[Rfam]
RNA sequence: GGGUUAAUGCUAAUCGUGAUAGGGGUUCUGAGCUGAACCAAUGACUCCUGUGGGUUAGCAUUAAGCC
Numbered sequence: 001g002g003g004u005u006a007a008u009g010c011u012a013a014u015c016g017u018g019a020u021a022g023g024g025g026u027u028c029u030g031a032g033c034u035g036a037a038c039c040a041a042u043g044a045c046u047c048c049u050g051u052g053g054g055u056u057a058g059c060a061u062u063a064a065g066c067c
Stems, first nucleotide, its partner, number of pairs: 004064011020050004025045003
RNA: mir-155 microRNA precursor family